Shown here is an 82-nucleotide sequence, a member of the family "RAGATH-10 RNA". A reference for the family is Weinberg et al. (2015), "New classes of self-cleaving ribozymes revealed by comparative genomics analysis", Nat Chem Biol. The family's consensus secondary structure is taken from published work.
[Rfam]
Nucleotides: 082
Base pairs, nucleotide, nucleotide: 005075006074007073008072009071010070011069012068016039017038018037022034023033024032025031042055043054044053045052046051056067057066058065059064
Number, partner (000 for none) and nucleotide at each position: 001000g002000a003000a004000a005075c006074c007073u008072c009071a010070u011069c012068u013000u014000c015000g016039g017038u018037c019000g020000u021000u022034c023033g024032c025031c026000a027000u028000c029000c030000g031025g032024g033023c034022g035000u036000c037018g038017a039016u040000c041000a042055g043054u044053g045052u046051u047000u048000u049000u050000c051046a052045a053044c054043a055042c056067g057066a058065g059064c060000g061000u062000c063000c064059g065058c066057u067056c068012g069011g070010a071009u072008g073007g074006g075005g076000a077000g078000a079000g080000a081000g082000u